The family of this 180-nucleotide sequence from Rhodobacterales bacterium Y4I is "Ruegeria cis52 sRNA".
The family's RNA type in Rfam is small RNA.
Lineage of the source: Bacteria > Pseudomonadati > Pseudomonadota > Alphaproteobacteria > Rhodobacterales.
It scores 157 bits against the family's covariance model.
Pairs were carried over by alignment from the consensus structure, which was predicted with RNAfold.
On this family, see Rivers et al., Front Microbiol 2016: "Experimental Identification of Small Non-Coding RNAs in the Model Marine Bacterium Ruegeria pomeroyi DSS-3".

[Rfam]
RNA sequence: UCCUGAGCGCGUGCUUCAGAACGAUGUUGUGAAAGCUCACCCCCUUGAGGCGCGCGGUGCGGAUGUAUUGCGCGGUCAUCACCUCGGUCAUCGAGGCGCGGGUCAUCCGGGCGAUGUAUCCCAUGCCGUAGAGCGCAAUGGUCAGCACCGGCAGGAAGAAGUUCUCGAAAUUGGGGUUGU
Numbered sequence: 001u002c003c004u005g006a007g008c009g010c011g012u013g014c015u016u017c018a019g020a021a022c023g024a025u026g027u028u029g030u031g032a033a034a035g036c037u038c039a040c041c042c043c044c045u046u047g048a049g050g051c052g053c054g055c056g057g058u059g060c061g062g063a064u065g066u067a068u069u070g071c072g073c074g075g076u077c078a079u080c081a082c083c084u085c086g087g088u089c090a091u092c093g094a095g096g097c098g099c100g101g102g103u104c105a106u107c108c109g110g111g112c113g114a115u116g117u118a119u120c121c122c123a124u125g126c127c128g129u130a131g132a133g134c135g136c137a138a139u140g141g142u143c144a145g146c147a148c149c150g151g152c153a154g155g156a157a158g159a160a161g162u163u164c165u166c167g168a169a170a171u172u173g174g175g176g177u178u179g180u
Stems, first nucleotide, its partner, number of pairs: 004141001006139001009136004014131002016128001019126001021124001028123002031120001038113001040111003046105003051100004055075001057073006082096005145180003148175002151172001154165004